Notes
Shown here is a 122-nucleotide RNA from Piscinibacter aquaticus, a member of the family "ZMP/ZTP riboswitch aptamer (pfl RNA motif)". The family's consensus secondary structure is taken from published work. The match comes from Rfam's covariance-model search (43 bits). A reference for the family is Jones and Ferre-D'Amare (2015), "Recognition of the bacterial alarmone ZMP through long-distance association of two RNA subdomains", Nat Struct Mol Biol.
RNA sequence: CCGCCACCGCGCGACUGGCGAUGCGGCCCCGCCCCGGGCCCUGAGGUGGUGUACCACCGGGAAGCGUGGUCGGUGGCCGACGCUUUCGGCCAUCGCAUCCGCCGUUCGCCUGGGCAGCCCUG
Numbered sequence: 001c002c003g004c005c006a007c008c009g010c011g012c013g014a015c016u017g018g019c020g021a022u023g024c025g026g027c028c029c030c031g032c033c034c035c036g037g038g039c040c041c042u043g044a045g046g047u048g049g050u051g052u053a054c055c056a057c058c059g060g061g062a063a064g065c066g067u068g069g070u071c072g073g074u075g076g077c078c079g080a081c082g083c084u085u086u087c088g089g090c091c092a093u094c095g096c097a098u099c100c101g102c103c104g105u106u107c108g109c110c111u112g113g114g115c116a117g118c119c120c121u122g
Base pairs, nucleotide, nucleotide: 004072006070007069008068009067010066011065012064015061016060017110018109019108020107021106046057047056048055049054099117101115102114103113